[Rfam]
RNA sequence: GCGCUCACUAAGGCUCGGUCCUCUCCACGUGGUCCUGACCUGUCCUCUGUGAGCAAGAGAAACAGGACUGGUUUGGGGGUGUCCUGUCUCAGUGGACACAGGACACCACGGUUUUCAGUACAACA
Numbered sequence: 001g002c003g004c005u006c007a008c009u010a011a012g013g014c015u016c017g018g019u020c021c022u023c024u025c026c027a028c029g030u031g032g033u034c035c036u037g038a039c040c041u042g043u044c045c046u047c048u049g050u051g052a053g054c055a056a057g058a059g060a061a062a063c064a065g066g067a068c069u070g071g072u073u074u075g076g077g078g079g080u081g082u083c084c085u086g087u088c089u090c091a092g093u094g095g096a097c098a099c100a101g102g103a104c105a106c107c108a109c110g111g112u113u114u115u116c117a118g119u120a121c122a123a124c125a
Stems, first nucleotide, its partner, number of pairs: 003054006012044003017040004025032002065121001067119005073111003078107008086097004
Rfam assigns this 125-nucleotide sequence to the family "Small Cajal body specific RNA 23". It is annotated as a small Cajal body RNA. Its family is annotated with RNA processing, Cajal body and nucleolus in the Gene Ontology. Rfam's curators write: scaRNAs are a specific class of small nuclear RNAs which localise to the Cajal bodies and guide the modification of RNA polymerase II transcribed spliceosomal RNAs U1, U2, U4, U5 and U12. ACA11 belongs to the H/ACA box class of guide RNAs as it has the predicted hairpin-hinge-hairpin-tail structure,the conserved H/ACA-box motifs and is found associated with GAR1. H/ACA snRNAs are predicted to guide the modification of uridines to pseudouridines in substrate RNAs however, no target RNA has been identified for scaRNA ACA11.